[Rfam]
RNA sequence: UAUGUUACGGAUUUCGUCUCUUAUAUAAGUUCACAAUUGGGUGGACGUUUCUACAAACUACCGUAAAUAGUUUACUAUAAGACUUGAGAACAGGUCU
Numbered sequence: 001u002a003u004g005u006u007a008c009g010g011a012u013u014u015c016g017u018c019u020c021u022u023a024u025a026u027a028a029g030u031u032c033a034c035a036a037u038u039g040g041g042u043g044g045a046c047g048u049u050u051c052u053a054c055a056a057a058c059u060a061c062c063g064u065a066a067a068u069a070g071u072u073u074a075c076u077a078u079a080a081g082a083c084u085u086g087a088g089a090a091c092a093g094g095u096c097u
Base pairs, nucleotide, nucleotide: 019082020081021080022079023078024077025076029046030045031044032043033042034041055073056072057071058070059069060068
Shown here is a 97-nucleotide sequence from Coprococcus sp. AF21-14LB, a member of the family "Purine riboswitch aptamer". The family's consensus secondary structure is taken from published work.